[Rfam]
RNA sequence: GCUGGGCACAGUGGUUUGUGUCUGUAAUCCCAGCUCCUUGGGAGGCUGAGGCUGUAGGAUUACUUAAGCUCAGGGGUUCUGGGCUGCAGUUGGUCAUGCUGAUCAGGUGUCCAUGCUAAGAUCAGCAUCAAUAUGGUGACCUGUGGGAAGCUGUAGGUUACCAGGUUGUCUAAGAAGGGGUGAACCGGCCCAGGUCAAGAAUGGAGCAGGCCAAAGCUCCUGUGCUGAGAAGUAGUGGGAUUGCACCUGUGGUUGGUUCCUGUAGCACAGCCUUGGCAAGAGAGUAAGACACAGUCUCUU
Numbered sequence: 001g002c003u004g005g006g007c008a009c010a011g012u013g014g015u016u017u018g019u020g021u022c023u024g025u026a027a028u029c030c031c032a033g034c035u036c037c038u039u040g041g042g043a044g045g046c047u048g049a050g051g052c053u054g055u056a057g058g059a060u061u062a063c064u065u066a067a068g069c070u071c072a073g074g075g076g077u078u079c080u081g082g083g084c085u086g087c088a089g090u091u092g093g094u095c096a097u098g099c100u101g102a103u104c105a106g107g108u109g110u111c112c113a114u115g116c117u118a119a120g121a122u123c124a125g126c127a128u129c130a131a132u133a134u135g136g137u138g139a140c141c142u143g144u145g146g147g148a149a150g151c152u153g154u155a156g157g158u159u160a161c162c163a164g165g166u167u168g169u170c171u172a173a174g175a176a177g178g179g180g181u182g183a184a185c186c187g188g189c190c191c192a193g194g195u196c197a198a199g200a201a202u203g204g205a206g207c208a209g210g211c212c213a214a215a216g217c218u219c220c221u222g223u224g225c226u227g228a229g230a231a232g233u234a235g236u237g238g239g240a241u242u243g244c245a246c247c248u249g250u251g252g253u254u255g256g257u258u259c260c261u262g263u264a265g266c267a268c269a270g271c272c273u274u275g276g277c278a279a280g281a282g283a284g285u286a287a288g289a290c291a292c293a294g295u296c297u298c299u300u
Base pairs, nucleotide, nucleotide: 001046002045003044004023005022006021007020008019009018010017011016028043029042030041048298049297050296051295052294053293054292055291060287061286062285063284064283065282068277069276070275072273073272074271079270080269081268083266084265085264086263087262088261089260093257094256095255096254099251104249105248106247107246108245109244110243111239112238114237115236116235117234118233122228123227124226125225126224127223128222129168130167131166132165134163135162136161137160138159139158140157141156142155143154144153145152146151169175170174176221177220178219179218180217181216187212188211189210190209195204196203197202
The record is a 300-nucleotide RNA from Sphenodon punctatus, which matches "Metazoan signal recognition particle RNA" in Rfam. Pairs were carried over by alignment from the consensus structure, which is taken from published work. The organism belongs to Sphenodon, within Eukaryota. The literature on the family includes a 2002 paper in Curr Opin Struct Biol by Wild et al., "Towards the structure of the mammalian signal recognition particle". Rfam links the family to the GO terms SRP-dependent cotranslational protein targeting to membrane, signal sequence recognition and signal recognition particle, endoplasmic reticulum targeting. The family's RNA type in Rfam is non-coding RNA gene.